Overview
Shown here is a 104-nucleotide RNA from Paenibacillus rigui, a member of the family "Purine riboswitch aptamer". Rfam links the family to the GO term purine nucleobase biosynthetic process.
RNA sequence: CAGGUAUAACUUCAAAUGACUCGUAUAAUUUUGGGGAUAUGGCCCAUAAGUUUCUACCGGAUGACCAUCGUAAUUAUCCGACUAUGAGUGAGAGCGCAUCGAGA
Numbered sequence: 001c002a003g004g005u006a007u008a009a010c011u012u013c014a015a016a017u018g019a020c021u022c023g024u025a026u027a028a029u030u031u032u033g034g035g036g037a038u039a040u041g042g043c044c045c046a047u048a049a050g051u052u053u054c055u056a057c058c059g060g061a062u063g064a065c066c067a068u069c070g071u072a073a074u075u076a077u078c079c080g081a082c083u084a085u086g087a088g089u090g091a092g093a094g095c096g097c098a099u100c101g102a103g104a
Stems, first nucleotide, its partner, number of pairs: 019089007029049002032046004058080007
Dot-bracket structure: ..................(((((((...((.((((.......)))).))........(((((((.........)))))))..)))))))...............
Pairs were carried over by alignment from the consensus structure, which is taken from published work. Lineage of the source: Bacteria > Bacillati > Bacilli > Caryophanales > Paenibacillus. The match comes from Rfam's covariance-model search (70 bits).